[Rfam]
Nucleotides: 077
Base pairs, nucleotide, nucleotide: 003075004074005073006072008070009069010068011067
Number, partner (000 for none) and nucleotide at each position: 001000a002000a003075g004074g005073g006072a007000a008070a009069g010068a011067c012000g013000g014000u015000g016000a017000u018000g019000u020000u021000c022000u023000u024000c025000a026000a027000g028000c029000a030000c031000a032000u033000a034000u035000c036000u037000g038000a039000a040000u041000u042000g043000u044000a045000u046000g047000u048000g049000u050000g051000g052000a053000c054000a055000a056000a057000a058000u059000g060000a061000a062000g063000c064000u065000g066000a067011g068010u069009c070008u071000u072006u073005c074004c075003c076000a077000c
Small nucleolar RNA SNORD121A: a 77-nucleotide RNA sequence from Dipodomys ordii. The organism belongs to Dipodomys, within Eukaryota. Rfam links the family to the GO terms RNA processing and nucleolus. It scores 55 bits against the family's covariance model. On this family, see Yang et al., Nucleic Acids Res 2006: "snoSeeker: an advanced computational package for screening of guide and orphan snoRNA genes in the human genome". Pairs were carried over by alignment from the consensus structure, which was predicted with WAR.